This 69-nucleotide RNA from Mycobacterium decipiens belongs to the Rfam family "ASpks TB sRNA".
RNA sequence: CUUAAUCGACCCCAACCACAGCGGCUCGGCUCGAUCCUGCCCAUAGGUGGCCAACAACGCCUGCGCCUC
Numbered sequence: 001c002u003u004a005a006u007c008g009a010c011c012c013c014a015a016c017c018a019c020a021g022c023g024g025c026u027c028g029g030c031u032c033g034a035u036c037c038u039g040c041c042c043a044u045a046g047g048u049g050g051c052c053a054a055c056a057a058c059g060c061c062u063g064c065g066c067c068u069c
Stems, first nucleotide, its partner, number of pairs: 014026001016024002029064002032059002038053002041050003
The family has 77 seed sequences and 9,052 matches in Rfam 15.1. The organism belongs to Mycobacterium, within Bacteria.